About this RNA
Rfam assigns this 144-nucleotide RNA from Microcaecilia unicolor to the family "Wolbachia sRNA 46".

RNA sequence: AACACCUUGAAUAAGAAAAUGCGAUUCAAAUGCCAACAAACCGGUGUCAUAUAAACUUGAUUGUAAUCAAAUAUGUGCUUAUUGAUAUAUAAAUCAAGUUUAUAUGACACCGGUUUGUUGGCAUUUGAAUCGCAUUUUCAUAUU
Numbered sequence: 001a002a003c004a005c006c007u008u009g010a011a012u013a014a015g016a017a018a019a020u021g022c023g024a025u026u027c028a029a030a031u032g033c034c035a036a037c038a039a040a041c042c043g044g045u046g047u048c049a050u051a052u053a054a055a056c057u058u059g060a061u062u063g064u065a066a067u068c069a070a071a072u073a074u075g076u077g078c079u080u081a082u083u084g085a086u087a088u089a090u091a092a093a094u095c096a097a098g099u100u101u102a103u104a105u106g107a108c109a110c111c112g113g114u115u116u117g118u119u120g121g122c123a124u125u126u127g128a129a130u131c132g133c134a135u136u137u138u139c140a141u142a143u144u
Base pairs, nucleotide, nucleotide: 014144015143020134021133022132023131024130025129026128027127028126029125030124031123032122033121034120035119036118038116039115040114041113042112043111044110045109046108047107048106049105050104051103052102053101054100055099
For this family Rfam cites "Wolbachia small noncoding RNAs and their role in cross-kingdom communications" (Mayoral et al., Proc Natl Acad Sci U S A, 2014).